RNA sequence: CAGUGGGAGCCAACCCACCAGGAUAAGAGUCGUAGUCCUGUAACUAGGGUAGCAAUAUGGAGGGAAACCAAAAUGUUGAAGCCUACCGACAGCAUUAUCGAAGGAUAAUGGUGAAUUAUUAGGCCGUAGCGAAA
Dot-bracket structure: ..................(((((............))))).......(((((((((((...((....))...))))))....)))))......((((((....)))))).(((...........))).......